[Rfam]
RNA sequence: CUUCUUCGACCCGCUCACUCCUCCUCCCAGAGCGGGAUCGAUUGGCCAACGACACUCCUCCUCCCAGUCGUUGGUCUGCAAAAAUGACGCUCACCGGACCUCCUCCCCCGGUGAGCGUUAUUU
Numbered sequence: 001c002u003u004c005u006u007c008g009a010c011c012c013g014c015u016c017a018c019u020c021c022u023c024c025u026c027c028c029a030g031a032g033c034g035g036g037a038u039c040g041a042u043u044g045g046c047c048a049a050c051g052a053c054a055c056u057c058c059u060c061c062u063c064c065c066a067g068u069c070g071u072u073g074g075u076c077u078g079c080a081a082a083a084a085u086g087a088c089g090c091u092c093a094c095c096g097g098a099c100c101u102c103c104u105c106c107c108c109c110g111g112u113g114a115g116c117g118u119u120a121u122u123u
Base pairs, nucleotide, nucleotide: 007040008039009038010036011035012034013033014032015031016030044076045075046074047073048072049071050070051069052068053067087118088117089116090115091114092113093112094111095110096109097108
Alphaproteobacterial ar14: a 123-nucleotide RNA sequence from Agrobacterium albertimagni. For this family Rfam cites "A survey of sRNA families in alpha-proteobacteria" (del Val et al., RNA Biol, 2012). Smr14C2 was renamed NfeR1 (Nodule Formation Efficiency RNA) highly expressed in salt stress and during the symbiotic interaction on legume roots. It is annotated as a small RNA. The base pairs follow the family's consensus structure. Lineage of the source: Bacteria > Pseudomonadati > Pseudomonadota > Rhizobiaceae > Agrobacterium albertimagni.